[Rfam]
RNA sequence: GCGGAUGGCCGGAUGGCCGCGGGGGCGACCCCGAGGAAAGUCCGGACUCCCUGAAGCAACGGUGCCGGGUAACGCCCGGGCGGGGAAACCCGACGGAAAGCGCCACAGAGAACAGACCGCCGCGCUCGCGCGGCAAGGGUGAAACGGUGGGGUAAGAGCCCACCGCGGGGCCGGCAACGGCCGCGGCACGGCAAGCCCCACCGGGAGCAAUGCCAGAUAGGACCUCCGCGGGGCGCGUCCCCAGGGCCGCUUCAGCCCCAGGCAGGUCGGGUAGGCAGCUUGAGCGCACCGGCAACGGUGCGUCGAGAGGAAUGGUCAUCGACGGGGCGCGAGCCCCCGAACAGAAUCCGGCUUACAGGCCAUCCGCGCAU
Numbered sequence: 001g002c003g004g005a006u007g008g009c010c011g012g013a014u015g016g017c018c019g020c021g022g023g024g025g026c027g028a029c030c031c032c033g034a035g036g037a038a039a040g041u042c043c044g045g046a047c048u049c050c051c052u053g054a055a056g057c058a059a060c061g062g063u064g065c066c067g068g069g070u071a072a073c074g075c076c077c078g079g080g081c082g083g084g085g086a087a088a089c090c091c092g093a094c095g096g097a098a099a100g101c102g103c104c105a106c107a108g109a110g111a112a113c114a115g116a117c118c119g120c121c122g123c124g125c126u127c128g129c130g131c132g133g134c135a136a137g138g139g140u141g142a143a144a145c146g147g148u149g150g151g152g153u154a155a156g157a158g159c160c161c162a163c164c165g166c167g168g169g170g171c172c173g174g175c176a177a178c179g180g181c182c183g184c185g186g187c188a189c190g191g192c193a194a195g196c197c198c199c200a201c202c203g204g205g206a207g208c209a210a211u212g213c214c215a216g217a218u219a220g221g222a223c224c225u226c227c228g229c230g231g232g233g234c235g236c237g238u239c240c241c242c243a244g245g246g247c248c249g250c251u252u253c254a255g256c257c258c259c260a261g262g263c264a265g266g267u268c269g270g271g272u273a274g275g276c277a278g279c280u281u282g283a284g285c286g287c288a289c290c291g292g293c294a295a296c297g298g299u300g301c302g303u304c305g306a307g308a309g310g311a312a313u314g315g316u317c318a319u320c321g322a323c324g325g326g327g328c329g330c331g332a333g334c335c336c337c338c339g340a341a342c343a344g345a346a347u348c349c350g351g352c353u354u355a356c357a358g359g360c361c362a363u364c365c366g367c368g369c370a371u
Stems, first nucleotide, its partner, number of pairs: 001367010011356001012320007020033005038354003042351005047207004056252001060203005065079005080094001081092004095198002100196002102192003117138002119134006146164006165187001166185002169182005211277004221268005244258004284303008

The record is a 371-nucleotide sequence from Tropicimonas sp. IMCC6043, which matches "Bacterial RNase P class A" in Rfam. NCBI's taxonomy places the organism under Bacteria, Pseudomonadati, Rhodobacterales, Roseobacteraceae, Tropicimonas. The family's RNA type in Rfam is ribozyme.